[Rfam]
RNA sequence: CCCACACCCAUAUGUGUAGGACCCUAAAGGAUCACCAUUAAAUUUGGCACAAAUCUCUAGAAAAGUUAUCACAUAGAAGUGGGAUUUAACUUUUCUAGAGAUAUGUGCCAAAUUUAAUAGUGAUCCUUUGAGGUCCUACACACGUGGGUGUGGG
Numbered sequence: 001c002c003c004a005c006a007c008c009c010a011u012a013u014g015u016g017u018a019g020g021a022c023c024c025u026a027a028a029g030g031a032u033c034a035c036c037a038u039u040a041a042a043u044u045u046g047g048c049a050c051a052a053a054u055c056u057c058u059a060g061a062a063a064a065g066u067u068a069u070c071a072c073a074u075a076g077a078a079g080u081g082g083g084a085u086u087u088a089a090c091u092u093u094u095c096u097a098g099a100g101a102u103a104u105g106u107g108c109c110a111a112a113u114u115u116a117a118u119a120g121u122g123a124u125c126c127u128u129u130g131a132g133g134u135c136c137u138a139c140a141c142a143c144g145u146g147g148g149u150g151u152g153g154g
Stems, first nucleotide, its partner, number of pairs: 002153010013142001015140009025130004030125003034121002037118015053102016069082004

The record is a 154-nucleotide RNA sequence from Amborella trichopoda, which matches "MIR8565 microRNA precursor family" in Rfam.
The source organism's lineage runs through Eukaryota, Streptophyta, Tracheophyta, Amborellales and Amborella.
A search with the family's covariance model found it, with a score of 148 bits.
Its family is annotated with RISC complex and miRNA-mediated post-transcriptional gene silencing in the Gene Ontology.